[Rfam]
The record is a 538-nucleotide RNA from Cercospora berteroae, which matches "RNase MRP" in Rfam. The family is grouped with related families in Rfam's "RNaseP clan". It is annotated as a ribozyme. Lineage of the source: Eukaryota > Fungi > Pezizomycotina > Mycosphaerellales > Cercospora. It scores 97 bits against the family's covariance model.
RNA sequence: UCCUCGCUCAAAAAAUCGCAAUCAAAGCUCACACACCGACGCGGCCUUCGGGCUGCUGUCCUGUACACACAGCUUUGGGAGAAAGUCCCCGGACAACUCCAGUGCUCCGUCACUGGCAAGCUGAAAAGCGCCGCCAUAGAAGCAUCUUCUCGCGGCUCAGUCCUUCCUGCACCUCCAUCCUCCUUCACUACCUUUUCACCGCUCGCACUCCAUCUCGGCUGCUGCUCGACUCGGCAUCGCACCUGAAUGGACGCCCGCCGCAAGGUGCCCUUCGCAAGAGGGGAGACGAGGAUAUGAGUCUGCGCUUCUUUCAGACGGUGCUCGCUGGAGGGCUGGCAAAAAAAGGACGGAGGAGGUGAUGGGAUCCUGGCGAGGGACAAGCUGGAUACAAGGUCAGGUAAGGAGUCCAUUCGUCAAGGUCAAAAGAUAUGCGAUUGCUCGACGUCUCUCACCCUCAUCAUCCUGCUACACUCGUUCAGGGCUGGUGGAGAUGAAAAGAUUGUCGGGUAACUCGAUGGGGCUUAUUCUUGAUGCGAGG
Numbered sequence: 001u002c003c004u005c006g007c008u009c010a011a012a013a014a015a016u017c018g019c020a021a022u023c024a025a026a027g028c029u030c031a032c033a034c035a036c037c038g039a040c041g042c043g044g045c046c047u048u049c050g051g052g053c054u055g056c057u058g059u060c061c062u063g064u065a066c067a068c069a070c071a072g073c074u075u076u077g078g079g080a081g082a083a084a085g086u087c088c089c090c091g092g093a094c095a096a097c098u099c100c101a102g103u104g105c106u107c108c109g110u111c112a113c114u115g116g117c118a119a120g121c122u123g124a125a126a127a128g129c130g131c132c133g134c135c136a137u138a139g140a141a142g143c144a145u146c147u148u149c150u151c152g153c154g155g156c157u158c159a160g161u162c163c164u165u166c167c168u169g170c171a172c173c174u175c176c177a178u179c180c181u182c183c184u185u186c187a188c189u190a191c192c193u194u195u196u197c198a199c200c201g202c203u204c205g206c207a208c209u210c211c212a213u214c215u216c217g218g219c220u221g222c223u224g225c226u227c228g229a230c231u232c233g234g235c236a237u238c239g240c241a242c243c244u245g246a247a248u249g250g251a252c253g254c255c256c257g258c259c260g261c262a263a264g265g266u267g268c269c270c271u272u273c274g275c276a277a278g279a280g281g282g283g284a285g286a287c288g289a290g291g292a293u294a295u296g297a298g299u300c301u302g303c304g305c306u307u308c309u310u311u312c313a314g315a316c317g318g319u320g321c322u323c324g325c326u327g328g329a330g331g332g333c334u335g336g337c338a339a340a341a342a343a344a345g346g347a348c349g350g351a352g353g354a355g356g357u358g359a360u361g362g363g364a365u366c367c368u369g370g371c372g373a374g375g376g377a378c379a380a381g382c383u384g385g386a387u388a389c390a391a392g393g394u395c396a397g398g399u400a401a402g403g404a405g406u407c408c409a410u411u412c413g414u415c416a417a418g419g420u421c422a423a424a425a426g427a428u429a430u431g432c433g434a435u436u437g438c439u440c441g442a443c444g445u446c447u448c449u450c451a452c453c454c455u456c457a458u459c460a461u462c463c464u465g466c467u468a469c470a471c472u473c474g475u476u477c478a479g480g481g482c483u484g485g486u487g488g489a490g491a492u493g494a495a496a497a498g499a500u501u502g503u504c505g506g507g508u509a510a511c512u513c514g515a516u517g518g519g520g521c522u523u524a525u526u527c528u529u530g531a532u533g534c535g536a537g538g
Stems, first nucleotide, its partner, number of pairs: 002538006008531004014436006022079001023077006041056006083523003087520004104129003362408003366403003370399002376395003438507006